[Rfam]
RNA: Small nucleolar RNA Z13/snr52
RNA sequence: AUGGGUCCGGUGAUGUAAAAUUUCGGAUGUAAACCUUUUAAACCACCGAGAGCGCAAAAACCGUGUGGAUAUUUUCCGUUGCCUUCCUUCUGAGUACCCUU
Numbered sequence: 001a002u003g004g005g006u007c008c009g010g011u012g013a014u015g016u017a018a019a020a021u022u023u024c025g026g027a028u029g030u031a032a033a034c035c036u037u038u039u040a041a042a043c044c045a046c047c048g049a050g051a052g053c054g055c056a057a058a059a060a061c062c063g064u065g066u067g068g069a070u071a072u073u074u075u076c077c078g079u080u081g082c083c084u085u086c087c088u089u090c091u092g093a094g095u096a097c098c099c100u101u
Stems, first nucleotide, its partner, number of pairs: 003100003024078004